[Rfam]
RNA sequence: ACACGUGAAGGGAGGUGGUCCAAGGCAUGAUGUGCUAUCGGACUCGUGAGGUGGCGGCGGGCUAACCGCCAACCACUUAUUCAGUGGGCAAGUGGCUAGUCAUUCCGACGCCAGCCACCGGGCCCGCGGGUAGUCAGGAAAGUCCGCCUGACCCAGAGUUCGGCCACCCGGCCGUGUCUCCGGAAGCGCCCGCGGGUCUCUUUUU
Numbered sequence: 001a002c003a004c005g006u007g008a009a010g011g012g013a014g015g016u017g018g019u020c021c022a023a024g025g026c027a028u029g030a031u032g033u034g035c036u037a038u039c040g041g042a043c044u045c046g047u048g049a050g051g052u053g054g055c056g057g058c059g060g061g062c063u064a065a066c067c068g069c070c071a072a073c074c075a076c077u078u079a080u081u082c083a084g085u086g087g088g089c090a091a092g093u094g095g096c097u098a099g100u101c102a103u104u105c106c107g108a109c110g111c112c113a114g115c116c117a118c119c120g121g122g123c124c125c126g127c128g129g130g131u132a133g134u135c136a137g138g139a140a141a142g143u144c145c146g147c148c149u150g151a152c153c154c155a156g157a158g159u160u161c162g163g164c165c166a167c168c169c170g171g172c173c174g175u176g177u178c179u180c181c182g183g184a185a186g187c188g189c190c191c192g193c194g195g196g197u198c199u200c201u202u203u204u205u
Base pairs, nucleotide, nucleotide: 015058016057018055019054060101061100062099063098064097066095068093069092073087074086075085120199121198122197123196124195125194126193127192128191129190130189131188134151135150136149137148138147
The record is a 205-nucleotide RNA sequence from Kribbella sp. VKM Ac-2500, which matches "Actinobacteria sRNA Ms_IGR-5" in Rfam.
Rfam classes the family as a small RNA.